RNA: Fluoride riboswitch aptamer (crcB RNA motif)
Organism: Jeotgalibaca porci
RNA sequence: GGAUGUGACGGGAAUGAAUGUCUCCCAUGGCGCAAGCCAGAACCGCUUAUAUAUUCUAAGCUGAUGACUUCUACGAUUAA
Numbered sequence: 001g002g003a004u005g006u007g008a009c010g011g012g013a014a015u016g017a018a019u020g021u022c023u024c025c026c027a028u029g030g031c032g033c034a035a036g037c038c039a040g041a042a043c044c045g046c047u048u049a050u051a052u053a054u055u056c057u058a059a060g061c062u063g064a065u066g067a068c069u070u071c072u073a074c075g076a077u078u079a080a
Stems, first nucleotide, its partner, number of pairs: 010026004016071003020068003045061004